[Rfam]
RNA sequence: CAGUCAGGCUUCUGGCUAUAUUCCAGGACUUACCUGGUCCUGGAUAUAACCAAAGCCUGACUAUAU
Numbered sequence: 001c002a003g004u005c006a007g008g009c010u011u012c013u014g015g016c017u018a019u020a021u022u023c024c025a026g027g028a029c030u031u032a033c034c035u036g037g038u039c040c041u042g043g044a045u046a047u048a049a050c051c052a053a054a055g056c057c058u059g060a061c062u063a064u065a066u
Stems, first nucleotide, its partner, number of pairs: 003061003007057004013052003017048004023037005

Source information
A member of the RNA family "mir-344 microRNA precursor family" from Mus musculus, 66 nucleotides long. On this family, see Linsen et al., BMC Genomics 2010: "Small RNA expression and strain specificity in the rat". The family has 18 seed sequences and 339 matches in Rfam 15.1. The sequence is in the family's curated seed alignment. The family's consensus secondary structure was predicted with RNAalifold.